[Rfam]
RNA: Actino-pnp RNA
RNA sequence: AAUGGUCCUCGGUAGUGGUUUCCGCACAAAUUAAUGUGCGUGAACUUCGAUCGAAGAUUCAUU
Numbered sequence: 001a002a003u004g005g006u007c008c009u010c011g012g013u014a015g016u017g018g019u020u021u022c023c024g025c026a027c028a029a030a031u032u033a034a035u036g037u038g039c040g041u042g043a044a045c046u047u048c049g050a051u052c053g054a055a056g057a058u059u060c061a062u063u
Stems, first nucleotide, its partner, number of pairs: 001063002004059004009054005017046005023040006